[Rfam]
RNA sequence: GGCCGGGGGGAAAGAAAAAAUAUAGAUUAAAACAUCUAGUAUGGCCAAGCAGGGAACUAGAACAAUUCGCAGUUAAUUCUGGCU
Numbered sequence: 001g002g003c004c005g006g007g008g009g010g011a012a013a014g015a016a017a018a019a020a021u022a023u024a025g026a027u028u029a030a031a032a033c034a035u036c037u038a039g040u041a042u043g044g045c046c047a048a049g050c051a052g053g054g055a056a057c058u059a060g061a062a063c064a065a066u067u068c069g070c071a072g073u074u075a076a077u078u079c080u081g082g083c084u
Base pairs, nucleotide, nucleotide: 001084002083003082004081005080006079007078008077
HIV gag stem loop 3 (GSL3): an 84-nucleotide RNA sequence from Lentivirus humimdef1. On this family, see Damgaard et al., J Mol Biol 2004: "RNA interactions in the 5' region of the HIV-1 genome". NCBI's taxonomy places the organism under Viruses, Artverviricota, Revtraviricetes, Retroviridae, Lentivirus humimdef1. The family's RNA type in Rfam is cis-regulatory element. Rfam's curators put it in the seed alignment. Gene Ontology term of the family: viral RNA genome packaging.